[Rfam]
RNA sequence: GCAUGUACAUGAUGAAAGUUUAUUACAUAUCAGUUAUCCCUGUCCGAGAGGUAACAAACGGUGUGGACAUUGAACUCUUCUGAUACACGC
Numbered sequence: 001g002c003a004u005g006u007a008c009a010u011g012a013u014g015a016a017a018g019u020u021u022a023u024u025a026c027a028u029a030u031c032a033g034u035u036a037u038c039c040c041u042g043u044c045c046g047a048g049a050g051g052u053a054a055c056a057a058a059c060g061g062u063g064u065g066g067a068c069a070u071u072g073a074a075c076u077c078u079u080c081u082g083a084u085a086c087a088c089g090c
Stems, first nucleotide, its partner, number of pairs: 001090002004087004
RNA: Small nucleolar RNA R38